[Rfam]
RNA sequence: AGGUACCUGAGUAUAUGGGGAUGAAUGGAAUAGAUUCAAUGUCGAGGUUAUGAGAAAAGUAAAAGGGGGGAAUAUUUCCCCCCUGAGCCUUAACU
Numbered sequence: 001a002g003g004u005a006c007c008u009g010a011g012u013a014u015a016u017g018g019g020g021a022u023g024a025a026u027g028g029a030a031u032a033g034a035u036u037c038a039a040u041g042u043c044g045a046g047g048u049u050a051u052g053a054g055a056a057a058a059g060u061a062a063a064a065g066g067g068g069g070g071a072a073u074a075u076u077u078c079c080c081c082c083c084u085g086a087g088c089c090u091u092a093a094c095u
Stems, first nucleotide, its partner, number of pairs: 008038001010036003016032002064084009

The family of this 95-nucleotide RNA from Erwinia tasmaniensis is "sraA". Rfam's curators put it in the seed alignment. Lineage of the source: Bacteria > Pseudomonadati > Gammaproteobacteria > Erwiniaceae > Erwinia. It is annotated as a small RNA.